The record is a 72-nucleotide RNA sequence from Cucumis melo, which matches "Small nucleolar RNA snoR60" in Rfam. The family's RNA type in Rfam is C/D-box small nucleolar RNA. Clan: SNORD101 clan. Pairs were carried over by alignment from the consensus structure, which was predicted with PFOLD.

RNA sequence: UAGCAUAUGACGAAUUGCUCGGAUUCCCCUUCAAGACUUCUUGAAUGAUGCACAACCCGAGUUUCUGAUGCU
Numbered sequence: 001u002a003g004c005a006u007a008u009g010a011c012g013a014a015u016u017g018c019u020c021g022g023a024u025u026c027c028c029c030u031u032c033a034a035g036a037c038u039u040c041u042u043g044a045a046u047g048a049u050g051c052a053c054a055a056c057c058c059g060a061g062u063u064u065c066u067g068a069u070g071c072u
Base pairs, nucleotide, nucleotide: 002072003071004070005069